Description: This 84-nucleotide RNA sequence from Zizania palustris belongs to the Rfam family "Small nucleolar RNA Z199". Rfam describes the family as follows. snoZ199 is a C/D box small nucleolar RNA, which acts as a methylation guide RNA for sites on 18S and 25S rRNA. Rice snoZ199 is reported to be homologous to Arabidopsis snoR13. On this family, see Chen et al., Nucleic Acids Res 2003: "The high diversity of snoRNAs in plants: identification and comparative study of 120 snoRNA genes from Oryza sativa". Lineage of the source: Eukaryota > Tracheophyta > Poaceae > Zizaniinae > Zizania.

RNA sequence: GGAUCAAGUGAUGAGAGAAAAACUGCAACAAUAUCACAGGAAUUAUUCUCCUGUGAUUCCUUAGUAUUUAAGUCUCUGAUGACC
Number, nucleotide and partner (000 for none) at each position: 001g084002g083003a000004u082005c081006a080007a000008g000009u000010g000011a000012u000013g000014a000015g000016a000017g000018a000019a000020a000021a000022a000023c000024u000025g000026c000027a000028a000029c000030a000031a000032u000033a000034u000035c000036a000037c000038a052039g051040g050041a049042a000043u000044u000045a000046u000047u000048c000049u041050c040051c039052u038053g000054u000055g000056a000057u000058u000059c000060c000061u000062u000063a000064g000065u000066a000067u000068u000069u000070a000071a000072g000073u000074c000075u000076c000077u000078g000079a000080u006081g005082a004083c002084c001

Description: Pairs were carried over by alignment from the consensus structure, which was predicted with PFOLD.